A member of the RNA family "M-box riboswitch aptamer (ykoK leader)" from Clostridium oryzae, 172 nucleotides long.
M-box riboswitch, also know as ykoK leader is described as a metaloregulatory RNA that sense divalent metals and function as a genetic control element of genes related to divalent metal transport in bacteria. It was first reported upstream of the B.subtilis ykoK gene and genes with related functions in other bacteria.
The organism belongs to Clostridium, within Bacteria.
The family has 159 seed sequences and 1,095 matches in Rfam 15.1.
The match comes from Rfam's covariance-model search (149 bits).
[Rfam]
Nucleotides: 172
Stems, first nucleotide, its partner, number of pairs: 005168006011157002013095001015153003020147003025143008039113005045074005054065004080104004086098003115131005
Number, partner (000 for none) and nucleotide at each position: 001000u002000a003000a004000a005168g006167u007166c008165c009164u010163u011157g012156u013095u014000a015153g016152g017151u018000g019000a020147g021146g022145c023000u024000c025143c026142u027141a028140u029139a030138u031137g032136g033000a034000u035000a036000c037000a038000c039113g040112c041111u042110g043109c044000u045074g046073c047072c048071c049070g050000g051000a052000a053000a054065c055064g056063u057062c058000g059000a060000g061000a062057g063056a064055u065054g066000c067000c068000a069000a070049u071048g072047g073046g074045u075000c076000a077000a078000c079000a080104g081103g082102u083101a084000u085000u086098a087097u088096c089000g090000g091000a092000u093000u094000a095013a096088g097087g098086u099000u100000c101083u102082a103081c104080u105000u106000a107000a108000u109043g110042c111041a112040g113039c114000u115131g116130a117129a118128a119127a120000c121000a122000a123000u124000g125000a126000g127119u128118u129117u130116u131115c132000u133000a134000u135000g136032c137031u138030a139029u140028a141027u142026a143025g144000u145022g146021c147020u148000a149000a150000a151017a152016c153015u154000a155000a156012a157011c158000u159000a160000g161000u162000g163010a164009a165008g166007g167006a168005u169000u170000g171000c172000u